[Rfam]
RNA sequence: AUUAUCAUGAUGAAAAUUCUAUACUGAAAACAUCUUUGCUGAUCACCAAAAGAAAAACCAAAAGGAUUCUGAAAACAAU
Numbered sequence: 001a002u003u004a005u006c007a008u009g010a011u012g013a014a015a016a017u018u019c020u021a022u023a024c025u026g027a028a029a030a031c032a033u034c035u036u037u038g039c040u041g042a043u044c045a046c047c048a049a050a051a052g053a054a055a056a057a058c059c060a061a062a063a064g065g066a067u068u069c070u071g072a073a074a075a076c077a078a079u
Stems, first nucleotide, its partner, number of pairs: 001079003005075001
Dot-bracket structure: (((.(.....................................................................).)))
The family of this 79-nucleotide sequence from Scaptodrosophila lebanonensis is "Small nucleolar RNA Me28S-Cm3227". A search with the family's covariance model found it, with a score of 44 bits. The family's RNA type in Rfam is C/D-box small nucleolar RNA. Rfam 15.1 lists 45 matches to the family in 25 species. For this family Rfam cites "Genome-wide analyses of two families of snoRNA genes from Drosophila melanogaster, demonstrating the extensive utilization of introns for coding of snoRNAs" (Huang et al., RNA, 2005).